[Rfam]
RNA: PyrR binding site
Organism: Terribacillus saccharophilus
Nucleotides: 132
Stems, first nucleotide, its partner, number of pairs: 005035004013030006053084002056081003061076006094127014
Number, partner (000 for none) and nucleotide at each position: 001000g002000g003000u004000a005035c006034c007033u008032u009000u010000a011000a012000u013030u014029c015028a016027g017026u018025c019000c020000c021000g022000u023000g024000a025018g026017g027016c028015u029014g030013a031000c032008a033007a034006g035005g036000a037000c038000a039000u040000u041000c042000g043000g044000a045000a046000a047000c048000u049000a050000u051000g052000c053084g054083g055000a056081g057080u058079a059000a060000u061076g062075g063074g064073a065072u066071a067000g068000c069000u070000a071066u072065a073064u074063c075062c076061u077000u078000a079058u080057a081056u082000c083054c084053u085000c086000a087000u088000g089000u090000u091000u092000a093000a094127a095126g096125a097124g098123g099122c100121u101120u102119c103118c104117u105116g106115u107114c108000a109000g110000u111000g112000a113000u114107g115106g116105c117104a118103g119102g120101a121100a122099g123098c124097c125096u126095c127094u128000u129000u130000u131000c132000u